[Rfam]
A member of the RNA family "SAM riboswitch aptamer (S box leader)" from Gracilibacillus boraciitolerans, 106 nucleotides long.

RNA sequence: GUCUUAUCUAGAGAGGUGGAGGGACUGGCCCGAAGAAACCCGGCAACCUUUAAGUGGAAGCUUAAAAGGUGCUAAUUCCAUCAGGAGCAAUCCUGAAAGAUAAGAA
Numbered sequence: 001g002u003c004u005u006a007u008c009u010a011g012a013g014a015g016g017u018g019g020a021g022g023g024a025c026u027g028g029c030c031c032g033a034a035g036a037a038a039c040c041c042g043g044c045a046a047c048c049u050u051u052a053a054g055u056g057g058a059a060g061c062u063u064a065a066a067a068g069g070u071g072c073u074a075a076u077u078c079c080a081u082c083a084g085g086a087g088c089a090a091u092c093c094u095g096a097a098a099g100a101u102a103a104g105a106a
Stems, first nucleotide, its partner, number of pairs: 002105007013041001015040003021031003026080003042073004047069002049065002052062001077098001082095005

A search with the family's covariance model found it, with a score of 89 bits. The SAM riboswitch is found upstream of a number of genes which code for proteins involved in methionine or cysteine biosynthesis in Gram-positive bacteria.